[Rfam]
RNA sequence: UGCCAUCGCUAAGUCAAGGCUUCUCCUGCGACUUCAUGUCGUGCUAUUCGCUAUGGGGGAUUGUCUGUUACAGCUUUGGCAGAUUGACGCUAGUCCGCGCCGACCUUCUUUCUGAAGCUAGGCUGAUUGGCUUUCGUUUUGAGAGCCUUUCGUUAAGGACCAAGCAGUGUUCUGUUUUUGAGUUGAGUCCUGCUUCCGCUCUCGAGUGGCAUCAUAGCCGGUCUCUUAGUAACAUUUCACACAUUC
Numbered sequence: 001u002g003c004c005a006u007c008g009c010u011a012a013g014u015c016a017a018g019g020c021u022u023c024u025c026c027u028g029c030g031a032c033u034u035c036a037u038g039u040c041g042u043g044c045u046a047u048u049c050g051c052u053a054u055g056g057g058g059g060a061u062u063g064u065c066u067g068u069u070a071c072a073g074c075u076u077u078g079g080c081a082g083a084u085u086g087a088c089g090c091u092a093g094u095c096c097g098c099g100c101c102g103a104c105c106u107u108c109u110u111u112c113u114g115a116a117g118c119u120a121g122g123c124u125g126a127u128u129g130g131c132u133u134u135c136g137u138u139u140u141g142a143g144a145g146c147c148u149u150u151c152g153u154u155a156a157g158g159a160c161c162a163a164g165c166a167g168u169g170u171u172c173u174g175u176u177u178u179u180g181a182g183u184u185g186a187g188u189c190c191u192g193c194u195u196c197c198g199c200u201c202u203c204g205a206g207u208g209g210c211a212u213c214a215u216a217g218c219c220g221g222u223c224u225c226u227u228a229g230u231a232a233c234a235u236u237u238c239a240c241a242c243a244u245u246c
Stems, first nucleotide, its partner, number of pairs: 003079003017066004021060006028042005090164002093160004099123003103119001105117004125151002130146007167240003173234003185225003192218003196209005
RNA: Small nucleolar RNA snR191